This 60-nucleotide RNA from Pseudoalteromonas denitrificans belongs to the Rfam family "Pseudomonas sRNA P26". Taxonomically the source falls in Pseudoalteromonas denitrificans (Bacteria, Gammaproteobacteria, Pseudoalteromonadaceae, Pseudoalteromonas). Pairs were carried over by alignment from the consensus structure, which was predicted with RNAalifold. From the family's description: This small RNA (sRNA) was computationally identified in the genome of the opportunistic pathogen Pseudomonas aeruginosa and its expression verified by northern blot analysis. P26 is conserved across many Gammaproteobacteria species and appears to be consistently located between the DNA directed RNA polymerase (beta subunit) and 50S ribosomal protein L7/L12 genes.
RNA sequence: UUUGCUAGGUUAGCUGCCUGAAUUUCAGGUACGGGCUGGUGAUUAUUUAAUCACCAGCCU
Numbered sequence: 001u002u003u004g005c006u007a008g009g010u011u012a013g014c015u016g017c018c019u020g021a022a023u024u025u026c027a028g029g030u031a032c033g034g035g036c037u038g039g040u041g042a043u044u045a046u047u048u049a050a051u052c053a054c055c056a057g058c059c060u
Stems, first nucleotide, its partner, number of pairs: 015031004034059010